[Rfam]
RNA sequence: AGCGCGUUCGGGUCGACGCCGCGGGUCACCACGAGGUAGUCGCGCAUCGCGAUGCCGUGGCGGUUCUC
Numbered sequence: 001a002g003c004g005c006g007u008u009c010g011g012g013u014c015g016a017c018g019c020c021g022c023g024g025g026u027c028a029c030c031a032c033g034a035g036g037u038a039g040u041c042g043c044g045c046a047u048c049g050c051g052a053u054g055c056c057g058u059g060g061c062g063g064u065u066c067u068c
Base pairs, nucleotide, nucleotide: 005062006061008059011030012029013028015027016026017025035056036055037054038053040052041051042050043049044048